[Rfam]
RNA: mir-3017 microRNA precursor family
Organism: Acyrthosiphon pisum
RNA sequence: CCGUGUUCUGUGACUGACUCGGCUGGCACCCGCCGGUCUGUCACAGAACACGGGA
Numbered sequence: 001c002c003g004u005g006u007u008c009u010g011u012g013a014c015u016g017a018c019u020c021g022g023c024u025g026g027c028a029c030c031c032g033c034c035g036g037u038c039u040g041u042c043a044c045a046g047a048a049c050a051c052g053g054g055a
Stems, first nucleotide, its partner, number of pairs: 001053014016038003020035003025030001